[Rfam]
Nucleotides: 125
Stems, first nucleotide, its partner, number of pairs: 006036002009033002013028006065120001066118004072109004081104007089096002
Number, partner (000 for none) and nucleotide at each position: 001000g002000g003000a004000a005000u006036a007035g008000a009033g010032g011000g012000a013028g014027c015026g016025u017024c018023g019000u020000a021000a022000a023018u024017g025016g026015c027014g028013u029000g030000g031000a032010u033009c034000c035007c036006u037000g038000a039000u040000g041000g042000a043000g044000a045000a046000g047000c048000a049000g050000a051000g052000g053000a054000a055000c056000a057000a058000c059000g060000a061000u062000g063000a064000g065120g066118c067117g068116a069115g070000a071000a072109a073108u074107c075106g076000u077000u078000u079000c080000a081104g082103u083102c084101g085100c086099c087098a088000u089096u090095u091000c092000u093000c094000c095090g096089a097000u098087u099086g100085g101084c102083g103082a104081u105000u106075c107074g108073a109072u110000u111000g112000u113000u114000g115069c116068u117067c118066g119000u120065c121000a122000a123000c124000a125000c

Small nucleolar RNA snoR111: a 125-nucleotide RNA from Phoenix dactylifera. Rfam classes the family as an H/ACA-box small nucleolar RNA. Rfam links the family to the GO terms nucleolus and RNA processing. NCBI's taxonomy places the organism under Eukaryota, Viridiplantae, Embryophyta, Spermatophyta, Phoenix.